[Rfam]
RNA sequence: CUAGUGCAGCAGUGAUGCUGCGUGACGGUUAAUAAGAAGUCAGCAGAAGGCAUAGUACCUUGGGGAAAGUACAAACCCAAGGGGAAAGGCC
Numbered sequence: 001c002u003a004g005u006g007c008a009g010c011a012g013u014g015a016u017g018c019u020g021c022g023u024g025a026c027g028g029u030u031a032a033u034a035a036g037a038a039g040u041c042a043g044c045a046g047a048a049g050g051c052a053u054a055g056u057a058c059c060u061u062g063g064g065g066a067a068a069g070u071a072c073a074a075a076c077c078c079a080a081g082g083g084g085a086a087a088g089g090c091c
Stems, first nucleotide, its partner, number of pairs: 001027001004023008040047002049091003058084003063076001
Annotation:
The record is a 91-nucleotide RNA sequence from Photobacterium gaetbulicola, which matches "Group II catalytic intron D1-D4-1" in Rfam. It scores 58 bits against the family's covariance model. The pairing is the family consensus, mapped onto this sequence. Rfam's curators write: Group II introns are found in rRNA, tRNA and mRNA of organelles in fungi, plants and protists, and also in mRNA in bacteria.